TPP riboswitch aptamer (THI element): a 115-nucleotide RNA from Oryzisolibacter propanilivorax. Taxonomically the source falls in Oryzisolibacter (Bacteria, Pseudomonadota, Burkholderiales, Comamonadaceae). The match comes from Rfam's covariance-model search (60 bits). Vitamin B(1) in its active form thiamin pyrophosphate (TPP) is an essential coenzyme that is synthesised by coupling of pyrimidine and thiazole moieties in bacteria.
[Rfam]
RNA sequence: CCCGCUGCUCCGGGGUGCACGAACGCAACAGGCGUGCUGAGAUGGCGGACCCGACCGCCAAAACCGCGAACUUGAUCUGGUUAGUACCAGCGUAAGAAGAGCUGCAGCGCCAUGG
Numbered sequence: 001c002c003c004g005c006u007g008c009u010c011c012g013g014g015g016u017g018c019a020c021g022a023a024c025g026c027a028a029c030a031g032g033c034g035u036g037c038u039g040a041g042a043u044g045g046c047g048g049a050c051c052c053g054a055c056c057g058c059c060a061a062a063a064c065c066g067c068g069a070a071c072u073u074g075a076u077c078u079g080g081u082u083a084g085u086a087c088c089a090g091c092g093u094a095a096g097a098a099g100a101g102c103u104g105c106a107g108c109g110c111c112a113u114g115g
Stems, first nucleotide, its partner, number of pairs: 007102004011066003016060001017037005044059005071096004077090004